[Rfam]
RNA sequence: CUUGACGGAACCGAGCCACAGCGGCCGGGCCGCGGGCCGCUCCUUGCCGUACGUCGCGAGCAGCGCCUGCGCCUC
Numbered sequence: 001c002u003u004g005a006c007g008g009a010a011c012c013g014a015g016c017c018a019c020a021g022c023g024g025c026c027g028g029g030c031c032g033c034g035g036g037c038c039g040c041u042c043c044u045u046g047c048c049g050u051a052c053g054u055c056g057c058g059a060g061c062a063g064c065g066c067c068u069g070c071g072c073c074u075c
Base pairs, nucleotide, nucleotide: 015025016024017023031071032070033069038065039064043060044059045058047056049054
Notes:
ASpks TB sRNA: a 75-nucleotide RNA sequence from Streptomyces capitiformicae.